[Rfam]
RNA sequence: AGUCAGAGGGGACCCUGCUAGCAAUAGUAGAAGGCCUGAUGGCGUGCCUUUUGUAGAAUGA
Numbered sequence: 001a002g003u004c005a006g007a008g009g010g011g012a013c014c015c016u017g018c019u020a021g022c023a024a025u026a027g028u029a030g031a032a033g034g035c036c037u038g039a040u041g042g043c044g045u046g047c048c049u050u051u052u053g054u055a056g057a058a059u060g061a
Stems, first nucleotide, its partner, number of pairs: 002043004008037003047060001049058001
Bacterial large subunit ribosomal RNA: a 61-nucleotide part of an RNA from Brachyspira murdochii. The family's consensus secondary structure is taken from published work.